The record is an 82-nucleotide RNA from Pyrus ussuriensis x Pyrus communis, which matches "Small nucleolar RNA R38" in Rfam.
Rfam 15.1 lists 2,295 matches to the family in 1,305 species.
It is annotated as a C/D-box small nucleolar RNA.
Rfam describes the family as follows. snoR38 is a C/D box small nucleolar RNA conserved across yeast, human, Arabidopsis and rice.
Rfam links the family to the GO terms RNA processing and nucleolus.
For this family Rfam cites "The high diversity of snoRNAs in plants: identification and comparative study of 120 snoRNA genes from Oryza sativa" (Chen et al., Nucleic Acids Res, 2003).
RNA sequence: UGCUGUGGAUGAUGAGAUCACAAAAUUAACAGUUAUCCCUGUCUGACGUACGGAUGCUGAAAACAUGUUAUCUGACACAGCU
Dot-bracket structure: .((((((....................................................................)))))).